[Rfam]
RNA sequence: GAUGAGCCGCGGAACUGACGGAAAUAGGUGGAAUGAACCACGUGGACUGCGGGUCUCAUGAAAAAGCCGACCGUCUGGGCAGGGAAA
Numbered sequence: 001g002a003u004g005a006g007c008c009g010c011g012g013a014a015c016u017g018a019c020g021g022a023a024a025u026a027g028g029u030g031g032a033a034u035g036a037a038c039c040a041c042g043u044g045g046a047c048u049g050c051g052g053g054u055c056u057c058a059u060g061a062a063a064a065a066g067c068c069g070a071c072c073g074u075c076u077g078g079g080c081a082g083g084g085a086a087a
Stems, first nucleotide, its partner, number of pairs: 004055002007052006015044001017075005028041004066080003
RNA: ZMP/ZTP riboswitch aptamer (pfl RNA motif)